[Rfam]
Shown here is a 128-nucleotide sequence from Sodalis praecaptivus, a member of the family "RtT RNA". Rfam 15.1 lists 651 matches to the family in 204 species. The base pairs follow the family's consensus structure, which is taken from published work. It scores 127 bits against the family's covariance model. Rfam links the family to the GO term cellular response to amino acid starvation. The family's RNA type in Rfam is cis-regulatory element. This family represents a bacterial cis-regulatory element known as RtT RNA. The exact function of RtT is unknown although it is thought that it may be involved in changing the cellular response in relation to amino acid starvation.
RNA sequence: CAUGGCGCAGUGGGGGGAAGGUGAGAACCUUCGACCAAGGUUCGGGCCGAGCGCAGCGAGACAACGAUGCGCAGCAUCGGCCCGAAGGGUGAGGAGCGAAGCGACGAAUAAUCCUUCCCCCACCACCA
Numbered sequence: 001c002a003u004g005g006c007g008c009a010g011u012g013g014g015g016g017g018a019a020g021g022u023g024a025g026a027a028c029c030u031u032c033g034a035c036c037a038a039g040g041u042u043c044g045g046g047c048c049g050a051g052c053g054c055a056g057c058g059a060g061a062c063a064a065c066g067a068u069g070c071g072c073a074g075c076a077u078c079g080g081c082c083c084g085a086a087g088g089g090u091g092a093g094g095a096g097c098g099a100a101g102c103g104a105c106g107a108a109u110a111a112u113c114c115u116u117c118c119c120c121c122a123c124c125a126c127c128a
Stems, first nucleotide, its partner, number of pairs: 015119007022111001032091002035089002041086004048058002065079006